RNA sequence: UAAUCAUUGUUUUAAAUCAAACCUGUUAUGAUUUAAGAUAAUGAAAGCACCGCACACCACGUUACCUGCUGAGCUGGACUCCGGGUUCCGUGGUUCUUUU
Numbered sequence: 001u002a003a004u005c006a007u008u009g010u011u012u013u014a015a016a017u018c019a020a021a022c023c024u025g026u027u028a029u030g031a032u033u034u035a036a037g038a039u040a041a042u043g044a045a046a047g048c049a050c051c052g053c054a055c056a057c058c059a060c061g062u063u064a065c066c067u068g069c070u071g072a073g074c075u076g077g078a079c080u081c082c083g084g085g086u087u088c089c090g091u092g093g094u095u096c097u098u099u100u
Stems, first nucleotide, its partner, number of pairs: 001046001004044016056094006064086005071081003
Dot-bracket structure: (..((((((((((((((((.........)))))))))))))))).).........((((((..(((((..(((.....))))))))..))))))......
23S methyl RNA motif: a 100-nucleotide RNA sequence from Streptococcus mutans. For this family Rfam cites "Identification of 22 candidate structured RNAs in bacteria using the CMfinder comparative genomics pipeline" (Weinberg et al., Nucleic Acids Res, 2007). Taxonomically the source falls in Streptococcus mutans (Bacteria, Bacillati, Streptococcaceae, Streptococcus). Rfam links the family to the GO term regulation of gene expression. It is one of the family's seed sequences.